[Rfam]
Overview: The record is a 91-nucleotide RNA sequence from Planifilum fulgidum, which matches "Glycine riboswitch aptamer" in Rfam. NCBI's taxonomy places the organism under Bacteria, Bacillota, Bacilli, Caryophanales, Planifilum. It scores 58 bits against the family's covariance model.

RNA sequence: GUGAAGGCGGGAGGAGAGACCGCGCAUGCGGCGCCGAAGGGGCAAGCCCGUAAAGGGUGAAUCUCUCAGGCAAAAGGAGGCCCGCCGGACG
Dot-bracket structure: .....((((((........((((....)))).(((((..(((...((.........))....))))).))).........)))))).....